[Rfam]
RNA sequence: AGCAAAAUGAUGAAGUAAUUUAAUCUGAAUUCCUAUGUGGAAAUUCUUUAUUAUGGUCUUCAAAGUUCUCUGAUUGCU
Numbered sequence: 001a002g003c004a005a006a007a008u009g010a011u012g013a014a015g016u017a018a019u020u021u022a023a024u025c026u027g028a029a030u031u032c033c034u035a036u037g038u039g040g041a042a043a044u045u046c047u048u049u050a051u052u053a054u055g056g057u058c059u060u061c062a063a064a065g066u067u068c069u070c071u072g073a074u075u076g077c078u
Stems, first nucleotide, its partner, number of pairs: 001078005
The record is a 78-nucleotide sequence from Trema andersonii, which matches "Small nucleolar RNA R160" in Rfam. Rfam's curators write: snoR160 is a C/D box small nucleolar RNA, which acts as a methylation guide for 25S ribosomal RNA in plants. snoR160 has been alternatively named snoZ270 in rice. Taxonomically the source falls in Trema (Eukaryota, Euphyllophyta, Spermatophyta, Rosales).